RNA sequence: CUGGAGGACUAAGAAAGUGGAGCCGGUGACAUUAUAUUGACUCCACUGAUACUAUCCUCCUAAAUUAAGUGGUAGAAGAGCAAGGCCUGCCUGUGAGACAAAAGUCAGGUCGUACUUCAUCUACCUACAUAG
Numbered sequence: 001c002u003g004g005a006g007g008a009c010u011a012a013g014a015a016a017g018u019g020g021a022g023c024c025g026g027u028g029a030c031a032u033u034a035u036a037u038u039g040a041c042u043c044c045a046c047u048g049a050u051a052c053u054a055u056c057c058u059c060c061u062a063a064a065u066u067a068a069g070u071g072g073u074a075g076a077a078g079a080g081c082a083a084g085g086c087c088u089g090c091c092u093g094u095g096a097g098a099c100a101a102a103a104g105u106c107a108g109g110u111c112g113u114a115c116u117u118c119a120u121c122u123a124c125c126u127a128c129a130u131a132g
Stems, first nucleotide, its partner, number of pairs: 003060006010051002018045005024039001026035003071125006078118001082113001084111006
RNA: Small Cajal body specific RNA 15